[Rfam]
RNA sequence: CCUUCCGAGGGGCGCUGCAGCAGGCCUGCCAACGGCCUGUCAGGCUCGGAAGGGGCGUUUUCCGAACGCAUCAACGGCGCCCAUUCGCA
Numbered sequence: 001c002c003u004u005c006c007g008a009g010g011g012g013c014g015c016u017g018c019a020g021c022a023g024g025c026c027u028g029c030c031a032a033c034g035g036c037c038u039g040u041c042a043g044g045c046u047c048g049g050a051a052g053g054g055g056c057g058u059u060u061u062c063c064g065a066a067c068g069c070a071u072c073a074a075c076g077g078c079g080c081c082c083a084u085u086c087g088c089a
Stems, first nucleotide, its partner, number of pairs: 002052007021039006
Notes:
Rfam assigns this 89-nucleotide sequence from Azotobacter vinelandii to the family "SAH (S-adenosyl-L-homocysteine) riboswitch aptamer". The literature on the family includes a 2008 paper in Mol Cell by Wang et al., "Riboswitches that sense S-adenosylhomocysteine and activate genes involved in coenzyme recycling". The family's consensus secondary structure is taken from published work. Lineage of the source: Bacteria > Pseudomonadati > Pseudomonadaceae > Azotobacter > Azotobacter vinelandii.